[Rfam]
RNA sequence: CCCGCCAAGCCUCUUAACAAUGCUCAAAUUGUGCGGGC
Numbered sequence: 001c002c003c004g005c006c007a008a009g010c011c012u013c014u015u016a017a018c019a020a021u022g023c024u025c026a027a028a029u030u031g032u033g034c035g036g037g038c
Stems, first nucleotide, its partner, number of pairs: 001037005006031001008024003
A member of the RNA family "abiF RNA", 38 nucleotides long. The family's RNA type in Rfam is small RNA. It is one of the family's seed sequences. Actinobacteria, Bacteroidetes, Clostridia, Proteobacteria, one Clostridia phage. The family has 126 seed sequences and 282 matches in Rfam 15.1.